[Rfam]
RNA: PreQ1 (pre queuosine) riboswitch aptamer
RNA sequence: AAAAUAGAGGUUCGCGAAAUCCCUCUUAAAAAAACUAAGGAGAU
Numbered sequence: 001a002a003a004a005u006a007g008a009g010g011u012u013c014g015c016g017a018a019a020u021c022c023c024u025c026u027u028a029a030a031a032a033a034a035c036u037a038a039g040g041a042g043a044u
Base pairs, nucleotide, nucleotide: 006026007025008024009023010022016036
Dot-bracket structure: .....(((((.....[.....))))).........]........